A member of the RNA family "Small nucleolar RNA Z102/R77" from Rhododendron simsii, 91 nucleotides long. Lineage of the source: Eukaryota > Streptophytina > Spermatophyta > Ericaceae > Rhododendron. Its Rfam clan is "SNORD44 clan". Rfam classes the family as a C/D-box small nucleolar RNA. On this family, see Chen et al., Nucleic Acids Res 2003: "The high diversity of snoRNAs in plants: identification and comparative study of 120 snoRNA genes from Oryza sativa".
[Rfam]
Nucleotides: 091
Base pairs, nucleotide, nucleotide: 002090003089004088005087041061045058046057047056
Number, partner (000 for none) and nucleotide at each position: 001000g002090a003089a004088u005087g006000a007000g008000a009000u010000g011000a012000u013000g014000a015000u016000c017000g018000a019000g020000a021000u022000u023000u024000u025000a026000c027000u028000u029000c030000c031000c032000u033000a034000u035000u036000g037000g038000u039000u040000u041061g042000a043000u044000c045058g046057c047056c048000g049000c050000u051000a052000u053000g054000a055000u056047g057046g058045c059000a060000u061041c062000c063000c064000a065000u066000a067000a068000c069000g070000u071000a072000u073000u074000a075000g076000c077000u078000c079000u080000a081000u082000c083000u084000g085000a086000u087005c088004a089003u090002u091000c